[Rfam]
RNA: Purine riboswitch aptamer
Organism: Salipaludibacillus neizhouensis
RNA sequence: UAACAAAUAAAAAGUCAACUUCGUAUAACCUCAAAAAUAUGGCUUGAGGGUUUCUAAUAGGAGCCGUGAUUUCCUAACUACGAAGAAGGUGCGUAACAAG
Numbered sequence: 001u002a003a004c005a006a007a008u009a010a011a012a013a014g015u016c017a018a019c020u021u022c023g024u025a026u027a028a029c030c031u032c033a034a035a036a037a038u039a040u041g042g043c044u045u046g047a048g049g050g051u052u053u054c055u056a057a058u059a060g061g062a063g064c065c066g067u068g069a070u071u072u073c074c075u076a077a078c079u080a081c082g083a084a085g086a087a088g089g090u091g092c093g094u095a096a097c098a099a100g
Base pairs, nucleotide, nucleotide: 019085020084021083022082023081024080025079029049030048031047032046033045034044058076059075060074061073062072063071